[Rfam]
Notes:
sok antitoxin (CssrC): a 171-nucleotide RNA sequence from Kluyvera genomosp. 3. A search with the family's covariance model found it, with a score of 96 bits. Its family is annotated with mRNA binding in the Gene Ontology. Also identified in Shigella as CssrC.

RNA sequence: GGGUGCUUGAGGCUAUCUGUCUCAGGCAUAGCCGAAAGGCAGGUAGAAAAAAGCCCCAGAAAACAUUUGACGUCCAGCAAGACGUUAAACAUUCAUCUGAGGCCCCUAUGCCAUACAACAUAAGGUUAGCCUCUUACCGACCUUCGGGUAUAGGAGUAGAAGGCUAUGAAG
Numbered sequence: 001g002g003g004u005g006c007u008u009g010a011g012g013c014u015a016u017c018u019g020u021c022u023c024a025g026g027c028a029u030a031g032c033c034g035a036a037a038g039g040c041a042g043g044u045a046g047a048a049a050a051a052a053g054c055c056c057c058a059g060a061a062a063a064c065a066u067u068u069g070a071c072g073u074c075c076a077g078c079a080a081g082a083c084g085u086u087a088a089a090c091a092u093u094c095a096u097c098u099g100a101g102g103c104c105c106c107u108a109u110g111c112c113a114u115a116c117a118a119c120a121u122a123a124g125g126u127u128a129g130c131c132u133c134u135u136a137c138c139g140a141c142c143u144u145c146g147g148g149u150a151u152a153g154g155a156g157u158a159g160a161a162g163g164c165u166a167u168g169a170a171g
Stems, first nucleotide, its partner, number of pairs: 001057003005054004013046010026033001058098003062093002066089009099133005104125002107122004137163002141159001
Source information
It is annotated as an antitoxin RNA.